RNA sequence: GCCUGGCUGUAGCAGCACGUAAAUAUUGGAGUCAAAGCACUUGCGAAUCCUCCAGUAUUGACCGUGCUGCUGGAGUUAGGC
Numbered sequence: 001g002c003c004u005g006g007c008u009g010u011a012g013c014a015g016c017a018c019g020u021a022a023a024u025a026u027u028g029g030a031g032u033c034a035a036a037g038c039a040c041u042u043g044c045g046a047a048u049c050c051u052c053c054a055g056u057a058u059u060g061a062c063c064g065u066g067c068u069g070c071u072g073g074a075g076u077u078a079g080g081c
Stems, first nucleotide, its partner, number of pairs: 001081003005077003010074001011071008020061001022059008